[Rfam]
RNA sequence: GGCUGCAUUACUGGGCGAAUACUCUUAUGGCAGAUGAUUUUGGCAUUGCUUGAGAUGAAAGCAAAAUGUUUCUCUGCCAAAGGAGAUUUGCCCGCAAUUCAUCC
Numbered sequence: 001g002g003c004u005g006c007a008u009u010a011c012u013g014g015g016c017g018a019a020u021a022c023u024c025u026u027a028u029g030g031c032a033g034a035u036g037a038u039u040u041u042g043g044c045a046u047u048g049c050u051u052g053a054g055a056u057g058a059a060a061g062c063a064a065a066a067u068g069u070u071u072c073u074c075u076g077c078c079a080a081a082g083g084a085g086a087u088u089u090g091c092c093c094g095c096a097a098u099u100c101a102u103c104c
Base pairs, nucleotide, nucleotide: 005100007098008097009096011094013093014092015091016090017089018088019087022085023084024083025082028079029078030077031076032075033074034073036071
The family of this 104-nucleotide sequence from Brassica carinata is "mir-399 microRNA precursor family". Rfam describes the family as follows. mir-399 was identified in both Arabidopsis thaliana and Oryza sativa computationally and was later experimentally verified. mir-399 is thought to target mRNAs coding for a phosphatase transporter. The mature sequence is excised from the 3' arm of the hairpin. Gene Ontology terms of the family: miRNA-mediated post-transcriptional gene silencing and RISC complex. For this family Rfam cites "Computational Identification of Plant MicroRNAs and Their Targets, Including a Stress-Induced miRNA" (Jones-Rhoades and Bartel, Mol Cell, 2004). The family has 13 seed sequences and 2,396 matches in Rfam 15.1.